[Rfam]
RNA: ALIL pseudoknot
Organism: Limnohabitans sp. 2KL-17
RNA sequence: UGCUUUUUUUGCCCAGGCGGAGCUCGACCGCCGACUCAAGUCCUGAGGGACUUUGUUGACCAAAACCGCGGGGCCUAUGGGGUCGAGCCGAUUUGCAAAGUGCUGCAAAUCGCCCCG
Numbered sequence: 001u002g003c004u005u006u007u008u009u010u011g012c013c014c015a016g017g018c019g020g021a022g023c024u025c026g027a028c029c030g031c032c033g034a035c036u037c038a039a040g041u042c043c044u045g046a047g048g049g050a051c052u053u054u055g056u057u058g059a060c061c062a063a064a065a066c067c068g069c070g071g072g073g074c075c076u077a078u079g080g081g082g083u084c085g086a087g088c089c090g091a092u093u094u095g096c097a098a099a100g101u102g103c104u105g106c107a108a109a110u111c112g113c114c115c116c117g
Stems, first nucleotide, its partner, number of pairs: 016032005078117005089112002092109006